[Rfam]
Rfam assigns this 96-nucleotide sequence from Segatella maculosa to the family "Purine riboswitch aptamer". Gene Ontology term of the family: purine nucleobase biosynthetic process.
RNA sequence: GCGUAAUUUUGCAACCGUUGUUAUAUAGGUCUGAAACAGGUCAGACGUUUCUACCGGCUACCGAAAUAGCCGUCUAUGACAGCUAUUAUUAAUGUA
Numbered sequence: 001g002c003g004u005a006a007u008u009u010u011g012c013a014a015c016c017g018u019u020g021u022u023a024u025a026u027a028g029g030u031c032u033g034a035a036a037c038a039g040g041u042c043a044g045a046c047g048u049u050u051c052u053a054c055c056g057g058c059u060a061c062c063g064a065a066a067u068a069g070c071c072g073u074c075u076a077u078g079a080c081a082g083c084u085a086u087u088a089u090u091a092a093u094g095u096a
Base pairs, nucleotide, nucleotide: 018082019081020080021079022078023077024076025075029046030045031044032043033042034041055072056071057070058069059068060067